[Rfam]
RNA: Small nucleolar SNORD12/SNORD106
Organism: Phaetusa simplex
RNA sequence: GCUGGUGUCAGUGAUGACUGAAUUCUUUCCCCUUCAGAGCGACAGUGUUGACUUCUCACUGCUCAAGCCAAAUCAUGUCUGAUGCACCAGC
Dot-bracket structure: ((((((((...........................................................................))))))))
Numbered sequence: 001g002c003u004g005g006u007g008u009c010a011g012u013g014a015u016g017a018c019u020g021a022a023u024u025c026u027u028u029c030c031c032c033u034u035c036a037g038a039g040c041g042a043c044a045g046u047g048u049u050g051a052c053u054u055c056u057c058a059c060u061g062c063u064c065a066a067g068c069c070a071a072a073u074c075a076u077g078u079c080u081g082a083u084g085c086a087c088c089a090g091c
Stems, first nucleotide, its partner, number of pairs: 001091008